The record is a 71-nucleotide sequence from Ceutorhynchus assimilis, which matches "mir-12 microRNA precursor family" in Rfam. Its family is annotated with miRNA-mediated post-transcriptional gene silencing and RISC complex in the Gene Ontology. Pairs were carried over by alignment from the consensus structure, which was predicted with RNAalifold. On this family, see Werren et al., Science 2010: "Functional and evolutionary insights from the genomes of three parasitoid Nasonia species". A search with the family's covariance model found it, with a score of 57 bits. The organism belongs to Ceutorhynchus, within Eukaryota.
[Rfam]
RNA sequence: AGGGCGUGAGUAUUACAUCAGGUACUGGUUGGUUUUGAAAGUAAGCGGUACCUGUGUAAGACUCGCAUCUU
Numbered sequence: 001a002g003g004g005c006g007u008g009a010g011u012a013u014u015a016c017a018u019c020a021g022g023u024a025c026u027g028g029u030u031g032g033u034u035u036u037g038a039a040a041g042u043a044a045g046c047g048g049u050a051c052c053u054g055u056g057u058a059a060g061a062c063u064c065g066c067a068u069c070u071u
Stems, first nucleotide, its partner, number of pairs: 001071004006066001009063003015057004021052007029044001